Shown here is a 344-nucleotide RNA from Sphingomonas sinipercae, a member of the family "Alphaproteobacteria transfer-messenger RNA". Rfam's curators write: Bacterial tmRNA, also known as 10Sa RNA or SsrA, is named for its dual tRNA and mRNA-like properties. Its role is to liberate the mRNA from a stalled ribosome. To accomplish this part of the tmRNA is used as a reading frame that ends in a translation stop signal. The broken mRNA is replaced in the ribosome by the tmRNA and translation of the tmRNA leads to addition of a proteolysis tag to the incomplete protein enabling recognition by a protease. It scores 218 bits against the family's covariance model. Clan: tRNA clan.
[Rfam]
RNA sequence: UUUCUUGUAUUUUUGCGCGGAAACGCCUAUUUCAAGGGCGUCGGGGCAACCCGACUACGCCGGUAGAGUGUUAGGUGGAAUAGGCAUUUCGGACCCGGGGGGCAGUACCCCGGCGCCUCCACCACCAGCCGCGGUUCGCGCCGCUGCUGAUGGGGGCGAAAUAGGAUCGACGAGUGCAAUAAAGGUCUGGCUGCCGGUCGGUAUGAGUCCACCGCAAAGGCUCAUUCACACAAGUGCCAACGAUAACGAGGCUCUUGCUAUUGCUGCGUAACAACGUCCUCACGGACUGAGUUACAAAGACAAAAGCGCGGUUGGACCCCGCCGGGCAACAGAAGGGGAAUCCA
Numbered sequence: 001u002u003u004c005u006u007g008u009a010u011u012u013u014u015g016c017g018c019g020g021a022a023a024c025g026c027c028u029a030u031u032u033c034a035a036g037g038g039c040g041u042c043g044g045g046g047c048a049a050c051c052c053g054a055c056u057a058c059g060c061c062g063g064u065a066g067a068g069u070g071u072u073a074g075g076u077g078g079a080a081u082a083g084g085c086a087u088u089u090c091g092g093a094c095c096c097g098g099g100g101g102g103c104a105g106u107a108c109c110c111c112g113g114c115g116c117c118u119c120c121a122c123c124a125c126c127a128g129c130c131g132c133g134g135u136u137c138g139c140g141c142c143g144c145u146g147c148u149g150a151u152g153g154g155g156g157c158g159a160a161a162u163a164g165g166a167u168c169g170a171c172g173a174g175u176g177c178a179a180u181a182a183a184g185g186u187c188u189g190g191c192u193g194c195c196g197g198u199c200g201g202u203a204u205g206a207g208u209c210c211a212c213c214g215c216a217a218a219g220g221c222u223c224a225u226u227c228a229c230a231c232a233a234g235u236g237c238c239a240a241c242g243a244u245a246a247c248g249a250g251g252c253u254c255u256u257g258c259u260a261u262u263g264c265u266g267c268g269u270a271a272c273a274a275c276g277u278c279c280u281c282a283c284g285g286a287c288u289g290a291g292u293u294a295c296a297a298a299g300a301c302a303a304a305a306g307c308g309c310g311g312u313u314g315g316a317c318c319c320c321g322c323c324g325g326g327c328a329a330c331a332g333a334a335g336g337g338g339a340a341u342c343c344a
Stems, first nucleotide, its partner, number of pairs: 040055005059198005070191007085176003089173003095113005114158007199214004204224003209220002309324004315343001320338001